Shown here is an 80-nucleotide RNA from Caenorhabditis brenneri, a member of the family "SmY spliceosomal RNA". On this family, see MacMorris et al., RNA 2007: "A novel family of C. elegans snRNPs contains proteins associated with trans-splicing". Pairs were carried over by alignment from the consensus structure, which is taken from published work. The family's RNA type in Rfam is spliceosomal small nuclear RNA.
RNA sequence: AAAUGAUCUAAAUAUCUCUCAGGGCCUUGAAUAAGACCCAGUGAACAAUUUUUGGAGACCCUAUUCCUAGGAAUAGGGUG
Numbered sequence: 001a002a003a004u005g006a007u008c009u010a011a012a013u014a015u016c017u018c019u020c021a022g023g024g025c026c027u028u029g030a031a032u033a034a035g036a037c038c039c040a041g042u043g044a045a046c047a048a049u050u051u052u053u054g055g056a057g058a059c060c061c062u063a064u065u066c067c068u069a070g071g072a073a074u075a076g077g078g079u080g
Base pairs, nucleotide, nucleotide: 022039023038024037026035027034028033058079059078060077061076062075063074064073065072066071